[Rfam]
RNA sequence: AACUAUUACAGUCGAUGAGGAUAGGUUAUAGUUAAGUCAUCCGUUGAAGAUCCCUUUGUACGUUCUGGUUUUUCUUUGACUUCUUUGUCAUAGAUCAACGGGUUCGUCGGGCGCUGUGGAUUGUAUCGUGACCUUUCACCACCUUAUAGCGAUACUGCUUACGUCUACUGAGGCUG
Number, nucleotide and partner (000 for none) at each position: 001a000002a000003c000004u000005a000006u000007u000008a000009c176010a175011g174012u173013c172014g000015a000016u138017g137018a136019g135020g000021a000022u000023a134024g133025g132026u131027u130028a129029u123030a122031g121032u120033u119034a117035a000036g000037u000038c116039a115040u000041c113042c000043g000044u000045u000046g000047a000048a000049g000050a000051u000052c000053c062054c000055u060056u000057u000058g000059u000060a055061c000062g053063u111064u110065c109066u000067g000068g105069u098070u097071u000072u000073u094074c093075u092076u000077u090078g089079a088080c087081u000082u000083c000084u000085u000086u000087g080088u079089c078090a077091u000092a075093g074094a073095u000096c000097a070098a069099c000100g000101g000102g000103u000104u000105c068106g000107u000108c000109g065110g064111g063112c000113g041114c000115u039116g038117u034118g000119g033120a032121u031122u030123g029124u000125a000126u000127c000128g000129u028130g027131a026132c025133c024134u023135u019136u018137c017138a016139c000140c000141a153142c000143c151144u000145u000146a000147u000148a000149g000150c000151g143152a000153u141154a000155c000156u000157g000158c000159u000160u000161a000162c000163g000164u000165c000166u000167a000168c000169u000170g000171a000172g013173g012174c011175u010176g009
This 176-nucleotide RNA sequence from Petasospora fabianii belongs to the Rfam family "Small nucleolar RNA snR4".
A search with the family's covariance model found it, with a score of 67 bits.
The base pairs follow the family's consensus structure, which was predicted with CMfinder.
The source organism's lineage runs through Eukaryota, Ascomycota, Saccharomycotina, Phaffomycetales and Petasospora.
The literature on the family includes a 1996 paper in Cell by Balakin et al., "The RNA world of the nucleolus: two major families of small RNAs defined by different box elements with related functions".
The family's RNA type in Rfam is C/D-box small nucleolar RNA.
Rfam links the family to the GO terms RNA processing and nucleolus.